Rfam assigns this 68-nucleotide sequence from Halopseudomonas phragmitis to the family "narK RNA". By type it is a cis-regulatory element. The match comes from Rfam's covariance-model search (50 bits). Taxonomically the source falls in Halopseudomonas (Bacteria, Pseudomonadota, Gammaproteobacteria, Pseudomonadaceae). Pairs were carried over by alignment from the consensus structure, which is taken from published work.
RNA sequence: GGCACACUUACUGCAUAUAUCUCCUGCAGGUAACCAACGGCGGUUGCCUGAACAGACAACGACGUCAU
Numbered sequence: 001g002g003c004a005c006a007c008u009u010a011c012u013g014c015a016u017a018u019a020u021c022u023c024c025u026g027c028a029g030g031u032a033a034c035c036a037a038c039g040g041c042g043g044u045u046g047c048c049u050g051a052a053c054a055g056a057c058a059a060c061g062a063c064g065u066c067a068u
Stems, first nucleotide, its partner, number of pairs: 029048007